[Rfam]
RNA sequence: AGUCCUGUGGCCCUCGGUGCAGUGCUGCAUCUCUGGUCAGCUGAUAGUCUGAGAUGAAGCACUGUAGCUCGGGACAGAGGUCAC
Numbered sequence: 001a002g003u004c005c006u007g008u009g010g011c012c013c014u015c016g017g018u019g020c021a022g023u024g025c026u027g028c029a030u031c032u033c034u035g036g037u038c039a040g041c042u043g044a045u046a047g048u049c050u051g052a053g054a055u056g057a058a059g060c061a062c063u064g065u066a067g068c069u070c071g072g073g074a075c076a077g078a079g080g081u082c083a084c
Stems, first nucleotide, its partner, number of pairs: 011073003016068001018066009028056006035049002037046001

This 84-nucleotide sequence from Nothobranchius furzeri belongs to the Rfam family "mir-143 microRNA precursor family". Its family is annotated with miRNA-mediated post-transcriptional gene silencing and RISC complex in the Gene Ontology. It scores 88 bits against the family's covariance model. Rfam 15.1 lists 657 matches to the family in 637 species. Pairs were carried over by alignment from the consensus structure, which was predicted with RNAalifold.